RNA sequence: UGGCAACAGUGAUGACAGGAACUGUAGCUGUAAUGUUUCAUUACUGCAUGGAGACACCAGUCCCUCUAAACUGAUGUUGCCA
Numbered sequence: 001u002g003g004c005a006a007c008a009g010u011g012a013u014g015a016c017a018g019g020a021a022c023u024g025u026a027g028c029u030g031u032a033a034u035g036u037u038u039c040a041u042u043a044c045u046g047c048a049u050g051g052a053g054a055c056a057c058c059a060g061u062c063c064c065u066c067u068a069a070a071c072u073g074a075u076g077u078u079g080c081c082a
Stems, first nucleotide, its partner, number of pairs: 001082007
The family of this 82-nucleotide sequence from Galbula dea is "Small nucleolar RNA SNORD127". By type it is a C/D-box small nucleolar RNA. The family's consensus secondary structure was predicted with WAR. A search with the family's covariance model found it, with a score of 82 bits. Gene Ontology terms of the family: nucleolus and RNA processing.